Rfam assigns this 95-nucleotide RNA sequence from Nicotiana sylvestris to the family "MIR6152 microRNA precursor family".
Taxonomically the source falls in Nicotiana (Eukaryota, Streptophyta, Euphyllophyta, lamiids).
RNA sequence: UGUAGAUUAUUGUAUUCGACUGUAUUCACGGCGUGAAAUAGAAGAUUACACUGUUUUUAAAAUGGAAAAUGAAUCAAUUAACAUAAUAGACUCCU
Numbered sequence: 001u002g003u004a005g006a007u008u009a010u011u012g013u014a015u016u017c018g019a020c021u022g023u024a025u026u027c028a029c030g031g032c033g034u035g036a037a038a039u040a041g042a043a044g045a046u047u048a049c050a051c052u053g054u055u056u057u058u059a060a061a062a063u064g065g066a067a068a069a070u071g072a073a074u075c076a077a078u079u080a081a082c083a084u085a086a087u088a089g090a091c092u093c094c095u
Stems, first nucleotide, its partner, number of pairs: 002092001007089007015081002018079002021076002024074005032064003035057007